RNA sequence: UAUUAAUGCUAAUCGUGAUAGGGGUUUUUUAAUACAUAUUGACUCCUACAUGUUAGCAUUAUUAU
Numbered sequence: 001u002a003u004u005a006a007u008g009c010u011a012a013u014c015g016u017g018a019u020a021g022g023g024g025u026u027u028u029u030u031a032a033u034a035c036a037u038a039u040u041g042a043c044u045c046c047u048a049c050a051u052g053u054u055a056g057c058a059u060u061a062u063u064a065u
Stems, first nucleotide, its partner, number of pairs: 004061010019048004024043003